[Rfam]
RNA: small Cajal body-specific RNA 17
RNA sequence: CUCCGGGGUCCCCGAUGCAUCCCCGAGUGAGCGCGCGCUGUUUUCCUUAUAUGAUCAGGCCCUGCGCGCCCAGUGCGGAGCCUGAGAGGAUUAUGACAACGUGGCCGGUGACGUGGGACCAGGGGACCUGGAG
Numbered sequence: 001c002u003c004c005g006g007g008g009u010c011c012c013c014g015a016u017g018c019a020u021c022c023c024c025g026a027g028u029g030a031g032c033g034c035g036c037g038c039u040g041u042u043u044u045c046c047u048u049a050u051a052u053g054a055u056c057a058g059g060c061c062c063u064g065c066g067c068g069c070c071c072a073g074u075g076c077g078g079a080g081c082c083u084g085a086g087a088g089g090a091u092u093a094u095g096a097c098a099a100c101g102u103g104g105c106c107g108g109u110g111a112c113g114u115g116g117g118a119c120c121a122g123g124g125g126a127c128c129u130g131g132a133g
Base pairs, nucleotide, nucleotide: 001133002132003131006129007128008127009126010125011124012123013122020118021117022116023115055085056084057083058082059081060080062078063077064076065075066074067073